A member of the RNA family "c-di-AMP riboswitch aptamer (ydaO/yuaA leader)" from Streptomyces sp. CNQ-509, 165 nucleotides long. A search with the family's covariance model found it, with a score of 58 bits. The organism belongs to Streptomyces, within Bacteria. This family represents a conserved RNA structure found upstream of the ydaO and yuaA genes in Bacillus subtilis and related genes in other bacteria.
[Rfam]
RNA sequence: CAUGAAGCACCGCUGACAGGAGCGGGGGACCCACGGUAAGCGCCGCUCCGGUCCAACGAGAAGGCGGACCGGACGGCUUGGGGUCAAGCCGCACGUAUGACGUACGGCCGGGCACUCACAGCCCGCACCCGACAGCUCACCUCGCAGGCGUCGGUGAGAAAAGAG
Numbered sequence: 001c002a003u004g005a006a007g008c009a010c011c012g013c014u015g016a017c018a019g020g021a022g023c024g025g026g027g028g029a030c031c032c033a034c035g036g037u038a039a040g041c042g043c044c045g046c047u048c049c050g051g052u053c054c055a056a057c058g059a060g061a062a063g064g065c066g067g068a069c070c071g072g073a074c075g076g077c078u079u080g081g082g083g084u085c086a087a088g089c090c091g092c093a094c095g096u097a098u099g100a101c102g103u104a105c106g107g108c109c110g111g112g113c114a115c116u117c118a119c120a121g122c123c124c125g126c127a128c129c130c131g132a133c134a135g136c137u138c139a140c141c142u143c144g145c146a147g148g149c150g151u152c153g154g155u156g157a158g159a160a161a162a163g164a165g
Stems, first nucleotide, its partner, number of pairs: 001019001022145006032080002081130003089107003110124004